About this RNA: The record is a 98-nucleotide RNA from Rhamnella rubrinervis, which matches "Small nucleolar RNA Z103" in Rfam. Rfam classes the family as a C/D-box small nucleolar RNA.

[Rfam]
RNA sequence: AUGGAGGUGAUGAUUAUUUCCCCAAAAGAUCGAAGCUGAUUAAACUGAGCGACAUUAGUUCUCUCUUUCAGAGAGACCAAGCCAGAAAUCUGAUCCAU
Numbered sequence: 001a002u003g004g005a006g007g008u009g010a011u012g013a014u015u016a017u018u019u020c021c022c023c024a025a026a027a028g029a030u031c032g033a034a035g036c037u038g039a040u041u042a043a044a045c046u047g048a049g050c051g052a053c054a055u056u057a058g059u060u061c062u063c064u065c066u067u068u069c070a071g072a073g074a075g076a077c078c079a080a081g082c083c084a085g086a087a088a089u090c091u092g093a094u095c096c097a098u
Stems, first nucleotide, its partner, number of pairs: 001098005
Dot-bracket structure: (((((........................................................................................)))))